[Rfam]
RNA sequence: CUCACCACAACGACCUGUGUUGGCAUCUCCCGACCGCGUCCUCCGGGGCGCGUGACGGUUGAGAUACCGACAGUUCGUCCAUUAUGGAGCUUUCUUCCUCUCGAUAGAGUGUUUCGGACGACAGGUGCGCAGAGCAACUUUGGCAUCUUCCGGCAGCCUGAGCUCACCUCACGGUUCGAGCUCGGUGUAUGGUUGUGUGUCAGGCAGACUGAUUCCGUUUCCCUUUUGCUAGGCCGUUGGCCAUUGAUGCUUGGGACUAACCCAGUCAGCUACAUAC
Numbered sequence: 001c002u003c004a005c006c007a008c009a010a011c012g013a014c015c016u017g018u019g020u021u022g023g024c025a026u027c028u029c030c031c032g033a034c035c036g037c038g039u040c041c042u043c044c045g046g047g048g049c050g051c052g053u054g055a056c057g058g059u060u061g062a063g064a065u066a067c068c069g070a071c072a073g074u075u076c077g078u079c080c081a082u083u084a085u086g087g088a089g090c091u092u093u094c095u096u097c098c099u100c101u102c103g104a105u106a107g108a109g110u111g112u113u114u115c116g117g118a119c120g121a122c123a124g125g126u127g128c129g130c131a132g133a134g135c136a137a138c139u140u141u142g143g144c145a146u147c148u149u150c151c152g153g154c155a156g157c158c159u160g161a162g163c164u165c166a167c168c169u170c171a172c173g174g175u176u177c178g179a180g181c182u183c184g185g186u187g188u189a190u191g192g193u194u195g196u197g198u199g200u201c202a203g204g205c206a207g208a209c210u211g212a213u214u215c216c217g218u219u220u221c222c223c224u225u226u227u228g229c230u231a232g233g234c235c236g237u238u239g240g241c242c243a244u245u246g247a248u249g250c251u252u253g254g255g256a257c258u259a260a261c262c263c264a265g266u267c268a269g270c271u272a273c274a275u276a277c
Stems, first nucleotide, its partner, number of pairs: 011129002013126006019071005026064004030058003034054001035052007079120001082117001086113002089110003140199001154187002157184001160183006167174002204270002207267005220256004228250002232242004
The family of this 277-nucleotide RNA sequence from Pyrenophora seminiperda is "A. fumigatus sRNA Afu_309". By type it is a small RNA. Rfam 15.1 lists 663 matches to the family in 646 species. The literature on the family includes a 2008 paper in Nucleic Acids Res by Jochl et al., "Small ncRNA transcriptome analysis from Aspergillus fumigatus suggests a novel mechanism for regulation of protein synthesis". Pairs were carried over by alignment from the consensus structure, which was predicted with WAR.